The family of this 73-nucleotide RNA sequence from Albula goreensis is "Small nucleolar RNA SNORD81". It is annotated as a C/D-box small nucleolar RNA. Its Rfam clan is "SNORD26 clan".

Nucleotides: 073
Base pairs, nucleotide, nucleotide: 001073002072003071005069007067
Number, partner (000 for none) and nucleotide at each position: 001073c002072u003071u004000u005069g006000u007067a008000a009000a010000u011000g012000a013000u014000g015000a016000u017000c018000u019000u020000a021000c022000u023000c024000u025000u026000g027000a028000a029000c030000u031000c032000u033000c034000u035000c036000a037000c038000u039000g040000a041000g042000c043000u044000g045000u046000u047000g048000a049000u050000g051000a052000c053000a054000g055000u056000u057000a058000a059000g060000a061000u062000u063000c064000u065000g066000a067007u068000c069005u070000u071003g072002a073001g